[Rfam]
RNA sequence: UGACGGGGGCCCGCACAAGCGGUGGAUCAUGUGGUUUAAUUCGAUGCAACGCGAAGAACCUUACCUGGGCUUGACAUGCUAACUAAAGCCGGUGAAAGCCGGUGUCCGAAAGGGAGUUAGUGCAGGUGCUGCAUGGCUGUCGUCAGCUCGUGUCGUGAGAUGUUGGGUUAAGUCCCGCAACGAGCGCAACCCUUACAAUUAGUUGCUAACAAGUAAUGUUGAGCACUCUAAUUGGACUGCCUACGCAAGUAGUGAGGAAGGAGGGGAUGACGUCAAGUCCUCAUGGCCCUUACGUCCAGGGCAACACACGUGAUACAAUGGCGACUACAAUGGGCGAAGCCGCGAGGUGAAGAUAAUCCCAAAAAAGUCGUCUCAGUCCAGAUCGGAGUCUGCAACUCGACUCCGUGAAGUCGGAAUCGCUAGUAAUCGCAGAUCAGCAUGCUGCGGUGAAUACGUUCCCGGGCCUUGUACACACCGCCCGUCAAGCCAUGGAAGUCAGGAGUACCCAAAGACGCUGUGCGUUUAAGGUAAGACUGGUAACUGGGGCUAAGUCGUAACAAGGUAGCCGUACCGGAAGGUGUGGCUGGAUCACCUCCUUU
Dot-bracket structure: (((((.(((((((.((..((((((.((((((((((....((((........))))........(((((((......((.(((((...((((((....)))))).(((....)))))))).))..((.((((..((((((.((...(((((((((....)))..((((......))))..)))))).....((((.(((((((...((..(((......)))))....)))))))..((.(((((....)))).).)).....))))....)).).)))...))))))))....)))))))...)).)))))))).)...(((((((.....(((....(((....))).........))).....)))))))......(....(((((((........)))))))....).....))))).....(((((((.........)))))))......))...)))))))))).))..(.(..((...((((.(((..(((((...((((....(((((...)))))...))))...)))))..))).))))....))...)..).((((((((((....)))))))))).............